[Rfam]
RNA: THF (Tetrahydrofolate) riboswitch aptamer
Organism: Eubacterium sp. CAG:115
RNA sequence: CACAGAGUAGGAGAACGUGCGUUAAGUACUGCGCGGACGGAGAGUUGCCGCGCGGACGAAAGCCCUUCGGGCUGCGGUACGUUCUUCGCAUCUCGCUGUA
Dot-bracket structure: .((((....(((((((((((((...((.((((((((...[.[.[...))))))))))...((((.....))))))).)))))))))).].].]..)))).
Numbered sequence: 001c002a003c004a005g006a007g008u009a010g011g012a013g014a015a016c017g018u019g020c021g022u023u024a025a026g027u028a029c030u031g032c033g034c035g036g037a038c039g040g041a042g043a044g045u046u047g048c049c050g051c052g053c054g055g056a057c058g059a060a061a062g063c064c065c066u067u068c069g070g071g072c073u074g075c076g077g078u079a080c081g082u083u084c085u086u087c088g089c090a091u092c093u094c095g096c097u098g099u100a
Stems, first nucleotide, its partner, number of pairs: 002099004010087010020076003026057002029055008040093001042091001044089001061073004